[Rfam]
The family of this 173-nucleotide RNA from Alkaliphilus sp. is "Group II catalytic intron D1-D4-3".
RNA sequence: UCCACCGUGAGGUGGAAUCUGAAGGAAGUCGGCGGCAAAACAUUGAACCGAGGUAUGCGAAUCACAUUCGAGGCUCAUUUAAGAGGAUAAGGUUGCAAGUCAAACUAAAGUCCAAUAACUACCCGAAACUUGAUGAGUAAAUGUGGCGGUUACAUGAUGCGAAAGUGAGUGCU
Numbered sequence: 001u002c003c004a005c006c007g008u009g010a011g012g013u014g015g016a017a018u019c020u021g022a023a024g025g026a027a028g029u030c031g032g033c034g035g036c037a038a039a040a041c042a043u044u045g046a047a048c049c050g051a052g053g054u055a056u057g058c059g060a061a062u063c064a065c066a067u068u069c070g071a072g073g074c075u076c077a078u079u080u081a082a083g084a085g086g087a088u089a090a091g092g093u094u095g096c097a098a099g100u101c102a103a104a105c106u107a108a109a110g111u112c113c114a115a116u117a118a119c120u121a122c123c124c125g126a127a128a129c130u131u132g133a134u135g136a137g138u139a140a141a142u143g144u145g146g147c148g149g150u151u152a153c154a155u156g157a158u159g160c161g162a163a164a165g166u167g168a169g170u171g172c173u
Stems, first nucleotide, its partner, number of pairs: 001016006028173001030171002035166002041159005046151005062146006073138003077134001079133005085113004091106004
The organism belongs to Alkaliphilus, within Bacteria. It scores 137 bits against the family's covariance model.